[Rfam]
RNA: PhotoRC-II RNA
RNA sequence: UCACCAUCCACACACGCCUUACCAGGACUAAACAGCGUGGCUAAAAAACAGUCCUUCAUACCUGAUCUGGAGGGUAGAUCAGGAAUACUAUACUCA
Numbered sequence: 001u002c003a004c005c006a007u008c009c010a011c012a013c014a015c016g017c018c019u020u021a022c023c024a025g026g027a028c029u030a031a032a033c034a035g036c037g038u039g040g041c042u043a044a045a046a047a048a049c050a051g052u053c054c055u056u057c058a059u060a061c062c063u064g065a066u067c068u069g070g071a072g073g074g075u076a077g078a079u080c081a082g083g084a085a086u087a088c089u090a091u092a093c094u095c096a
Stems, first nucleotide, its partner, number of pairs: 013039005019034001024055005061083007